This 66-nucleotide RNA from Erwinia sp. Leaf53 belongs to the Rfam family "RybB RNA". This ncRNA was identified in a large scale screen of E. coli. The function of this short RNA is unknown. The exact 5' and 3' ends of this RNA are uncertain. The literature on the family includes a 2001 paper in Genes Dev by Wassarman et al., "Identification of novel small RNAs using comparative genomics and microarrays". The match comes from Rfam's covariance-model search (67 bits). The source organism's lineage runs through Bacteria, Pseudomonadati, Pseudomonadota, Erwiniaceae and Erwinia.
RNA sequence: ACUGCUUUUCUUUGAAAUCCCCAAAUUGAGGAGCCCGUUAAACUUCUGUUUAACGGGUUUUUUUAU
Numbered sequence: 001a002c003u004g005c006u007u008u009u010c011u012u013u014g015a016a017a018u019c020c021c022c023a024a025a026u027u028g029a030g031g032a033g034c035c036c037g038u039u040a041a042a043c044u045u046c047u048g049u050u051u052a053a054c055g056g057g058u059u060u061u062u063u064u065a066u
Base pairs, nucleotide, nucleotide: 032059033058034057035056036055037054038053039052040051041050042049043048